[Rfam]
RNA sequence: AGAGGCCCUCUGCGGCAGGGGCGGAACGCUUGCCUCGUCACCACGGCGACGAAGCAAGCAUUCUGCCAGGCCACUCAUGCUGCCCGC
Numbered sequence: 001a002g003a004g005g006c007c008c009u010c011u012g013c014g015g016c017a018g019g020g021g022c023g024g025a026a027c028g029c030u031u032g033c034c035u036c037g038u039c040a041c042c043a044c045g046g047c048g049a050c051g052a053a054g055c056a057a058g059c060a061u062u063c064u065g066c067c068a069g070g071c072c073a074c075u076c077a078u079g080c081u082g083c084c085c086g087c
Stems, first nucleotide, its partner, number of pairs: 004084003012074001014072003020067007028059006037050003041046001

mir-9195 microRNA precursor family: an 87-nucleotide sequence from Myotis brandtii. The base pairs follow the family's consensus structure, which was predicted with RNAalifold. It scores 93 bits against the family's covariance model. Rfam 15.1 lists 438 matches to the family in 7 species.